[Rfam]
RNA: Alphaproteobacteria transfer-messenger RNA
Organism: Bradyrhizobium sp. ORS 278
RNA sequence: GCUCUGUGCAUCGGCCCGCGGGCGGCCUAUAUAGGGGACGCCGGCUUGCCGGCUAUGGAAAUAAAUCGCCGUCGAAAUAAACCAUUCGGACCCGGGGGCGGUACCCGGCGCCUCCACCAAAGCCCGUCCCGUCGAGUGGCUGAGACGGGUUUUGGCGGGGGCGAAAUAGGAUCGACGAGGGCGUAAAGGGCGAGCUUUUUCCCGGUAUUGUUCCGCCGUUAUCGGGCUACUGCAAUAGUUGCCAACGACAACUUUGCUCCGGUUGCUCAGGCUGCGUAACGCAGUUUGAAAGACCACCUUAAAGUCCUAACGGGUUAAGCUCCGUUAGGCGGGGUUCGGAGGCACCUGGCAACAGAAGCCUCCACU
Numbered sequence: 001g002c003u004c005u006g007u008g009c010a011u012c013g014g015c016c017c018g019c020g021g022g023c024g025g026c027c028u029a030u031a032u033a034g035g036g037g038a039c040g041c042c043g044g045c046u047u048g049c050c051g052g053c054u055a056u057g058g059a060a061a062u063a064a065a066u067c068g069c070c071g072u073c074g075a076a077a078u079a080a081a082c083c084a085u086u087c088g089g090a091c092c093c094g095g096g097g098g099c100g101g102u103a104c105c106c107g108g109c110g111c112c113u114c115c116a117c118c119a120a121a122g123c124c125c126g127u128c129c130c131g132u133c134g135a136g137u138g139g140c141u142g143a144g145a146c147g148g149g150u151u152u153u154g155g156c157g158g159g160g161g162c163g164a165a166a167u168a169g170g171a172u173c174g175a176c177g178a179g180g181g182c183g184u185a186a187a188g189g190g191c192g193a194g195c196u197u198u199u200u201c202c203c204g205g206u207a208u209u210g211u212u213c214c215g216c217c218g219u220u221a222u223c224g225g226g227c228u229a230c231u232g233c234a235a236u237a238g239u240u241g242c243c244a245a246c247g248a249c250a251a252c253u254u255u256g257c258u259c260c261g262g263u264u265g266c267u268c269a270g271g272c273u274g275c276g277u278a279a280c281g282c283a284g285u286u287u288g289a290a291a292g293a294c295c296a297c298c299u300u301a302a303a304g305u306c307c308u309a310a311c312g313g314g315u316u317a318a319g320c321u322c323c324g325u326u327a328g329g330c331g332g333g334g335u336u337c338g339g340a341g342g343c344a345c346c347u348g349g350c351a352a353c354a355g356a357a358g359c360c361u362c363c364a365c366u
Base pairs, nucleotide, nucleotide: 040053041052042051043050044049057202058201059200060199061198068195069194070192071191072190073189082181083180086178087177088176092108093107094106095105096104109163110162111161112160113159114158115157203218204217205216206215208229210227213225214224332347333346334345335344338363339362340361341360342359343358